[Rfam]
RNA sequence: AUUUUUCGUCAUAGUUUUACUCAUAUAAUAGCAGGGAUAUGGCCUGCAAGUUUCUACCGGAUUACCGUAAAUAAUCUGACUAUGGGUAAGCAGUACUAUUCC
Numbered sequence: 001a002u003u004u005u006u007c008g009u010c011a012u013a014g015u016u017u018u019a020c021u022c023a024u025a026u027a028a029u030a031g032c033a034g035g036g037a038u039a040u041g042g043c044c045u046g047c048a049a050g051u052u053u054c055u056a057c058c059g060g061a062u063u064a065c066c067g068u069a070a071a072u073a074a075u076c077u078g079a080c081u082a083u084g085g086g087u088a089a090g091c092a093g094u095a096c097u098a099u100u101c102c
Base pairs, nucleotide, nucleotide: 018088019087020086021085022084023083024082025081029049031047032046033045034044035043058078059077060076061075062074063073064072